[Rfam]
RNA: Streptomyces-metH RNA
RNA sequence: CGGUCCCGGGACCUGCGGUGUCUCCCAAUCCGGCGUCCCCGGCCGUUAGGCUGACUCGGUGCGCUCCGUCACGGAGGCCGCAUAGCCGACAGCCGUCGCACCCCAGGGAGCAAUUCCAUG
Numbered sequence: 001c002g003g004u005c006c007c008g009g010g011a012c013c014u015g016c017g018g019u020g021u022c023u024c025c026c027a028a029u030c031c032g033g034c035g036u037c038c039c040c041g042g043c044c045g046u047u048a049g050g051c052u053g054a055c056u057c058g059g060u061g062c063g064c065u066c067c068g069u070c071a072c073g074g075a076g077g078c079c080g081c082a083u084a085g086c087c088g089a090c091a092g093c094c095g096u097c098g099c100a101c102c103c104c105a106g107g108g109a110g111c112a113a114u115u116c117c118a119u120g
Stems, first nucleotide, its partner, number of pairs: 060082004064076004085099002088097003